This 86-nucleotide RNA from Nelumbo nucifera belongs to the Rfam family "mir-160 microRNA precursor family".
The source organism's lineage runs through Eukaryota, Streptophyta, Tracheophyta, Nelumbonaceae and Nelumbo.
It scores 76 bits against the family's covariance model.
Gene Ontology terms of the family: miRNA-mediated post-transcriptional gene silencing and RISC complex.
On this family, see Rhoades et al., Cell 2002: "Prediction of plant microRNA targets".

RNA sequence: AUGUGCCUGGCUCCCUGUAUGCCAUUCGUAGAGCCCAUCGGCACAUCGAUGGUCUUCGUGGAUGGCGUGCGAGGAGCCAUGCAUAU
Numbered sequence: 001a002u003g004u005g006c007c008u009g010g011c012u013c014c015c016u017g018u019a020u021g022c023c024a025u026u027c028g029u030a031g032a033g034c035c036c037a038u039c040g041g042c043a044c045a046u047c048g049a050u051g052g053u054c055u056u057c058g059u060g061g062a063u064g065g066c067g068u069g070c071g072a073g074g075a076g077c078c079a080u081g082c083a084u085a086u
Stems, first nucleotide, its partner, number of pairs: 001086006008079007016071009027060003